[Rfam]
RNA sequence: GGAAAAAUGAGAGGAUCUCAAUCUAGUACGAGAGGACCGAAUAGGGUUGACCUCUGGUGUAUCGGUUGUCUUAUUAAAGGCAGUGCCGAGUAGCUACGUCAAUUAAAAAUAACUGCUGAAAGCAUAUAAGCAGGAAGUUGACCUCAAGAAUUUUUCUGUCAAAAAGUGUAAAAGAAUAUUACGUUGAUAGGCACGGUUUGUAAGUGUGGUGACAUAUUUAGAUAACGUGUACUAAAUCUUUUUA
Numbered sequence: 001g002g003a004a005a006a007a008u009g010a011g012a013g014g015a016u017c018u019c020a021a022u023c024u025a026g027u028a029c030g031a032g033a034g035g036a037c038c039g040a041a042u043a044g045g046g047u048u049g050a051c052c053u054c055u056g057g058u059g060u061a062u063c064g065g066u067u068g069u070c071u072u073a074u075u076a077a078a079g080g081c082a083g084u085g086c087c088g089a090g091u092a093g094c095u096a097c098g099u100c101a102a103u104u105a106a107a108a109a110u111a112a113c114u115g116c117u118g119a120a121a122g123c124a125u126a127u128a129a130g131c132a133g134g135a136a137g138u139u140g141a142c143c144u145c146a147a148g149a150a151u152u153u154u155u156c157u158g159u160c161a162a163a164a165a166g167u168g169u170a171a172a173a174g175a176a177u178a179u180u181a182c183g184u185u186g187a188u189a190g191g192c193a194c195g196g197u198u199u200g201u202a203a204g205u206g207u208g209g210u211g212a213c214a215u216a217u218u219u220a221g222a223u224a225a226c227g228u229g230u231a232c233u234a235a236a237u238c239u240u241u242u243u244a
Base pairs, nucleotide, nucleotide: 001157002156003155004154005153006152007151008150011145012144013143014142017045018044020042022040023039046103047102048101049100050099051098055096056095057094062089063088064087065086066085067082068081069080070079071078072077107139108138113133114132115131116130117129163241164240165239166238167183168182169181170180171179188234189233190232191230192229193228194227195226198222204217205216206215207214208213